Shown here is a 63-nucleotide sequence, a member of the family "L2-Alphaproteobacteria ribosomal protein leader". By type it is a cis-regulatory leader. The literature on the family includes a 2020 paper in BMC Microbiol by Eckert and Weinberg, "Discovery of 20 novel ribosomal leader candidates in bacteria and archaea".
[Rfam]
RNA sequence: GUGGACCUACGGGGCCAUAUAACCACAACGAUCAAUUGAUCGUUUAAAAACGGAAGACAGAAA
Numbered sequence: 001g002u003g004g005a006c007c008u009a010c011g012g013g014g015c016c017a018u019a020u021a022a023c024c025a026c027a028a029c030g031a032u033c034a035a036u037u038g039a040u041c042g043u044u045u046a047a048a049a050a051c052g053g054a055a056g057a058c059a060g061a062a063a
Stems, first nucleotide, its partner, number of pairs: 001018004006014003027044007